[Rfam]
RNA sequence: UGUGCAUGAAUAGUGAGCGGUCAGAUAAAAAGUGAAUAUAAACCCUUGUCAUUCUGAACCAGCUCCCUAUAAUGCGCCUCCAUCGACACGGAACAUGUGAACAACUUCACAGAGUCUCCGGGGUUCGAAGAGAAAAAAUCCUGAAAUUUAGGGGUUGACUCUGAAAGAGGAAAGCGUAAUAUACGCCACCUCGAGAUAGCAAGCUACGGCGGCUAACUCACUGCUCUUUAACAAUUUAUCAGAC
Numbered sequence: 001u002g003u004g005c006a007u008g009a010a011u012a013g014u015g016a017g018c019g020g021u022c023a024g025a026u027a028a029a030a031a032g033u034g035a036a037u038a039u040a041a042a043c044c045c046u047u048g049u050c051a052u053u054c055u056g057a058a059c060c061a062g063c064u065c066c067c068u069a070u071a072a073u074g075c076g077c078c079u080c081c082a083u084c085g086a087c088a089c090g091g092a093a094c095a096u097g098u099g100a101a102c103a104a105c106u107u108c109a110c111a112g113a114g115u116c117u118c119c120g121g122g123g124u125u126c127g128a129a130g131a132g133a134a135a136a137a138a139u140c141c142u143g144a145a146a147u148u149u150a151g152g153g154g155u156u157g158a159c160u161c162u163g164a165a166a167g168a169g170g171a172a173a174g175c176g177u178a179a180u181a182u183a184c185g186c187c188a189c190c191u192c193g194a195g196a197u198a199g200c201a202a203g204c205u206a207c208g209g210c211g212g213c214u215a216a217c218u219c220a221c222u223g224c225u226c227u228u229u230a231a232c233a234a235u236u237u238a239u240c241a242g243a244c
Stems, first nucleotide, its partner, number of pairs: 005223002007220001043123004048118001051115005056108003062102001064100002069098003074094001077091001129162004135156002139152001141151002167192004174186003193219003197215002
RNA: Yersinia sRNA 197
Organism: Serratia proteamaculans